[Rfam]
The record is a 71-nucleotide RNA from Chironomus riparius, which matches "mir-1175 microRNA precursor family" in Rfam. Taxonomically the source falls in Chironomus (Eukaryota, Protostomia, Panarthropoda, Mandibulata).
RNA sequence: AGCUCUAAGUGGAGAAGUAGUUCUCAUCGCUUAGUUUAGAAAGUGAGAUUCAACUUCUCCGACUUACUGCA
Numbered sequence: 001a002g003c004u005c006u007a008a009g010u011g012g013a014g015a016a017g018u019a020g021u022u023c024u025c026a027u028c029g030c031u032u033a034g035u036u037u038a039g040a041a042a043g044u045g046a047g048a049u050u051c052a053a054c055u056u057c058u059c060c061g062a063c064u065u066a067c068u069g070c071a
Base pairs, nucleotide, nucleotide: 007065008064009063010061011060012059013058014057016056017055018053024048025047027046028045029044030043031042032041
The family's consensus secondary structure was predicted with RNAalifold.